Rfam assigns this 370-nucleotide RNA from Urocynchramus pylzowi to the family "Vertebrate telomerase RNA". The family has 37 seed sequences and 523 matches in Rfam 15.1. The family's consensus secondary structure is taken from published work. Lineage of the source: Eukaryota > Bilateria > Deuterostomia > Theropoda > Urocynchramus. Rfam links the family to the GO terms telomerase activity, telomere maintenance via telomerase and telomerase catalytic core complex. A search with the family's covariance model found it, with a score of 124 bits. About the family: Telomerase is a ribonucleoprotein reverse transcriptase that synthesises telomeric DNA. Telomerase RNAs differ greatly in sequence and structure between vertebrates, ciliates and yeasts, but they share a 5' pseudoknot structure close to the template sequence. Vertebrate telomerase RNAs have a 3' H/ACA snoRNA-like domain. Clan: Telomerase clan.
RNA sequence: UGUGCCGGGGUGGGCAGGCCCUGUGGGCAACUAACCCUAAUGGCGGCCGCGCCCCUCACGCUCGCCCGCUGUUUUACUCGCUGACUUUCAGCGGGCAAAGGAAGCGGCCCAGGGAAAGGGGGUGAGGGAAAAGAGUUCCGGCCUCAAAAAAAGCCAGCGAGGGGGAUCCACACCCCGGCCCACCCUGGGGUCCCUGUCCCUUCUCCGCAACCGGGGAUGCUCCCGCCCUCGCCCCUCGUGGAGGCCGCGGUCGGCGGGCCCAGCGCCACUGCCGCCGCGAAGAGUUCGUCUCUGUCAGCCUCGGCGGCGGCCGGGAGCAGAGGGCCGGCGCGCCCAGCCUGGGCAGCCGGGGGACCCCAGCUGAACAAAA
Numbered sequence: 001u002g003u004g005c006c007g008g009g010g011u012g013g014g015c016a017g018g019c020c021c022u023g024u025g026g027g028c029a030a031c032u033a034a035c036c037c038u039a040a041u042g043g044c045g046g047c048c049g050c051g052c053c054c055c056u057c058a059c060g061c062u063c064g065c066c067c068g069c070u071g072u073u074u075u076a077c078u079c080g081c082u083g084a085c086u087u088u089c090a091g092c093g094g095g096c097a098a099a100g101g102a103a104g105c106g107g108c109c110c111a112g113g114g115a116a117a118g119g120g121g122g123u124g125a126g127g128g129a130a131a132a133g134a135g136u137u138c139c140g141g142c143c144u145c146a147a148a149a150a151a152a153g154c155c156a157g158c159g160a161g162g163g164g165g166a167u168c169c170a171c172a173c174c175c176c177g178g179c180c181c182a183c184c185c186u187g188g189g190g191u192c193c194c195u196g197u198c199c200c201u202u203c204u205c206c207g208c209a210a211c212c213g214g215g216g217a218u219g220c221u222c223c224c225g226c227c228c229u230c231g232c233c234c235c236u237c238g239u240g241g242a243g244g245c246c247g248c249g250g251u252c253g254g255c256g257g258g259c260c261c262a263g264c265g266c267c268a269c270u271g272c273c274g275c276c277g278c279g280a281a282g283a284g285u286u287c288g289u290c291u292c293u294g295u296c297a298g299c300c301u302c303g304g305c306g307g308c309g310g311c312c313g314g315g316a317g318c319a320g321a322g323g324g325c326c327g328g329c330g331c332g333c334c335c336a337g338c339c340u341g342g343g344c345a346g347c348c349g350g351g352g353g354a355c356c357c358c359a360g361c362u363g364a365a366c367a368a369a370a
Stems, first nucleotide, its partner, number of pairs: 001182002004179009014169001019165004051108003055104001064096008080158004085153001086151003185360007208330001211328004219318007229307005246279005252274004257267003281293004